[Rfam]
Description: ASdes TB sRNA: a 68-nucleotide RNA from Mycobacterium kansasii. The family's RNA type in Rfam is small RNA. The literature on the family includes a 2009 paper in Mol Microbiol by Arnvig and Young, "Identification of small RNAs in Mycobacterium tuberculosis". Rfam 15.1 lists 1,192 matches to the family in 825 species.
Nucleotides: 068
Base pairs, nucleotide, nucleotide: 004063005062008059009058011030012029013028015027016026017025018024035056037054038053040052041051042050043049044048
Number, partner (000 for none) and nucleotide at each position: 001000a002000g003000c004063u005062c006000c007000a008059c009058g010000g011030g012029g013028u014000c015027g016026a017025c018024c019000g020000a021000u022000c023000g024018g025017g026016u027015c028013a029012c030011u031000a032000c033000c034000a035056g036000a037054u038053a039000g040052u041051c042050g043049c044048g045000c046000a047000g048044c049043g050042c051041g052040a053038u054037g055000c056035c057000g058009u059008g060000c061000c062005g063004g064000u065000u066000c067000u068000c